[Rfam]
TPP riboswitch aptamer (THI element): a 110-nucleotide sequence from Bacillus sp. cl95. Lineage of the source: Bacteria > Bacillota > Bacilli > Caryophanales > Bacillus.
RNA sequence: AAGUAAAUGUGGGGGGACCGGUCUUGCCGGUUGAGAUUUCAUCCUUUAGAUGAUGACCCUUAGAACCUGAUCUGGUUGACACCAGCGGAGGGAACAUUCUAAACAUCACU
Number, nucleotide and partner (000 for none) at each position: 001a000002a000003g000004u000005a000006a098007a097008u096009g095010u094011g060012g059013g058014g057015g000016g054017a031018c030019c029020g028021g027022u000023c000024u000025u000026g000027c021028c020029g019030g018031u017032u000033g000034a000035g000036a000037u000038u000039u053040c052041a051042u050043c000044c000045u000046u000047u000048a000049g000050a042051u041052g040053a039054u016055g000056a000057c014058c013059c012060u011061u000062a000063g000064a000065a000066c091067c090068u089069g000070a000071u000072c085073u084074g083075g082076u000077u000078g000079a000080c000081a000082c075083c074084a073085g072086c000087g000088g000089a068090g067091g066092g000093a000094a010095c009096a008097u007098u006099c000100u000101a000102a000103a000104c000105a000106u000107c000108a000109c000110u000